Shown here is a 600-nucleotide part of an RNA from Microbotryum intermedium, a member of the family "Eukaryotic large subunit ribosomal RNA".
Taxonomically the source falls in Microbotryum (Eukaryota, Opisthokonta, Dikarya, Basidiomycota).

[Rfam]
Nucleotides: 600
Base pairs, nucleotide, nucleotide: 001600002599003598006596007595008594010591011590018425019424020423021422023421024420025417026416027415028414029413031221032220033219034218038213039212040211041210042209043208044207047124048123049122050121051120052119053118054117055116056115057113058112059111060110061109062108063107074105075104076103077102078101081088082087128201129200130199131198132197138194139193140192141191146157147156148155149154174188175187176186177185178184224237225235226234227233238260239259240258241257242256243255263364264363269321270320271319272318273317274316275301276300278296279295280294281293282292283291302311303310326350327349328348331345332344333343334342352361353360354359375403376402377401378400379399380398383397384396385395386394434475436473438472440468441467442466443465444464445463449459450458486561487559488558489557490556491553492550493549494548495547496546499524502519503518504517505516506515507514526540527539528538530536567585568584569583570582571580572579573578
Number, partner (000 for none) and nucleotide at each position: 001600a002599a003598g004000c005000g006596g007595g008594g009000a010591a011590a012000g013000a014000a015000g016000a017000c018425c019424c020423u021422g022000u023421u024420g025417a026416g027415c028414u029413u030000g031221a032220c033219u034218c035000u036000a037000g038213u039212u040211u041210g042209a043208c044207a045000u046000u047124g048123u049122g050121a051120a052119a053118a054117g055116a056115c057113a058112u059111a060110g061109a062108g063107g064000g065000u066000g067000u068000a069000g070000a071000a072000u073000a074105a075104g076103u077102g078101g079000g080000a081088g082087c083000u084000u085000c086000g087082g088081c089000g090000c091000c092000a093000g094000u095000g096000a097000a098000a099000u100000a101078c102077c103076a104075c105074u106000a107063c108062c109061u110060u111059u112058a113057u114000u115056g116055u117054u118053u119052u120051u121050u122049u123048a124047c125000u126000u127000a128201u129200u130199c131198a132197a133000u134000g135000a136000g137000g138194c139193g140192g141191a142000g143000c144000u145000g146157g147156g148155a149154u150000u151000a152000a153000c154149g155148u156147c157146c158000c159000a160000c161000g162000u163000u164000u165000u166000g167000g168000c169000a170000u171000u172000a173000a174188g175187g176186u177185c178184c179000u180000u181000c182000g183000c184178g185177g186176g187175c188174u189000g190000a191141u192140c193139c194138g195000g196000g197132u198131u199130g200129a201128a202000g203000a204000c205000a206000u207044u208043g209042u210041c211040a212039g213038g214000u215000g216000g217000g218034g219033a220032g221031u222000u223000u224237g225235g226234c227233u228000g229000g230000g231000g232000c233227g234226g235225c236000a237224c238260a239259u240258c241257u242256g243255u244000u245000a246000a247000a248000c249000a250000a251000u252000a253000a254000c255243g256242c257241a258240g259239g260238u261000g262000u263364c264363c265000u266000a267000a268000g269321g270320g271319g272318g273317a274316c275301u276300c277000a278296u279295c280294g281293a282292g283291a284000a285000c286000a287000g288000a289000a290000a291283u292282c293281u294280c295279g296278a297000g298000u299000a300276g301275a302311a303310c304000a305000a306000a307000a308000g309000g310303g311302u312000a313000a314000a315000a316274g317273u318272c319271c320270c321269c322000u323000u324000g325000a326350u327349u328348u329000u330000g331345a332344u333343u334342u335000u336000c337000a338000g339000u340000g341000u342334g343333a344332a345331u346000a347000c348328a349327a350326a351000c352361c353360a354359u355000g356000a357000a358000a359354g360353u361352g362000u363264g364263g365000c366000c367000u368000a369000u370000c371000g372000a373000u374000c375403c376402u377401u378400u379399a380398g381000u382000c383397c384396c385395u386394c387000g388000g389000a390000a391000u392000u393000u394386g395385a396384g397383g398380c399379u400378a401377g402376a403375g404000g405000u406000g407000c408000c409000a410000g411000a412000a413029a414028a415027g416026u417025u418000a419000c420024c421023a422021c423020a424019g425018g426000g427000a428000u429000a430000a431000c432000u433000g434475g435000c436473u437000u438472g439000u440468g441467g442466c443465a444464g445463c446000c447000a448000a449459g450458c451000g452000u453000u454000c455000a456000u457000a458450g459449c460000g461000a462000c463445g464444u465443u466442g467441c468440u469000u470000u471000u472438u473436g474000a475434u476000c477000c478000u479000u480000c481000g482000a483000u484000g485000u486561c487559g488558g489557c490556u491553c492550u493549u494548c495547c496546u497000a498000u499524c500000a501000u502519a503518c504517c505516g506515a507514a508000g509000c510000a511000g512000a513000a514507u515506u516505c517504g518503g519502u520000a521000a522000g523000c524499g525000u526540u527539g528538g529000a530536u531000u532000g533000u534000u535000c536530a537000c538528c539527c540526a541000c542000u543000a544000a545000u546496a547495g548494g549493g550492a551000a552000c553491g554000u555000g556490a557489g558488c559487u560000g561486g562000g563000u564000u565000u566000a567585g568584a569583c570582c571580g572579u573578c574000g575000u576000g577000a578573g579572a580571c581000a582570g583569g584568u585567u586000a587000g588000u589000u590011u591010u592000a593000c594008c595007c596006u597000a598003c599002u600001u